[Rfam]
RNA sequence: UUGCAAAUGAUGAGAUAUACUAGGAUUCCCCUAAGGGUGAUUUAAAAAUCGAGUUUCUGAUGUG
Dot-bracket structure: .((((.......................................................))))
Background: This 64-nucleotide RNA from Papaver nudicaule belongs to the Rfam family "Small nucleolar RNA snoR60". Lineage of the source: Eukaryota > Viridiplantae > Euphyllophyta > Papaveroideae > Papaver. Its Rfam clan is "SNORD101 clan". The literature on the family includes a 2000 paper in J Biol Chem by Barneche et al., "Fibrillarin genes encode both a conserved nucleolar protein and a novel small nucleolar RNA involved in ribosomal RNA methylation in Arabidopsis thaliana". It is annotated as a C/D-box small nucleolar RNA. Pairs were carried over by alignment from the consensus structure, which was predicted with PFOLD. Rfam 15.1 lists 1,133 matches to the family in 227 species.